The family of this 69-nucleotide RNA sequence from Medicago truncatula is "MIR2629 microRNA precursor family". It scores 74 bits against the family's covariance model. Its family is annotated with RISC complex and miRNA-mediated post-transcriptional gene silencing in the Gene Ontology. The source organism's lineage runs through Eukaryota, Spermatophyta, eudicotyledons, Gunneridae and Medicago.

[Rfam]
RNA sequence: UGUCGAAGUUUUCCUCAGUAGUUAACUGCAGCCGGUUCCAUAAUUCGGCAGUUAACUGCCAAGGGGCAU
Numbered sequence: 001u002g003u004c005g006a007a008g009u010u011u012u013c014c015u016c017a018g019u020a021g022u023u024a025a026c027u028g029c030a031g032c033c034g035g036u037u038c039c040a041u042a043a044u045u046c047g048g049c050a051g052u053u054a055a056c057u058g059c060c061a062a063g064g065g066g067c068a069u
Stems, first nucleotide, its partner, number of pairs: 012065002015062001018059012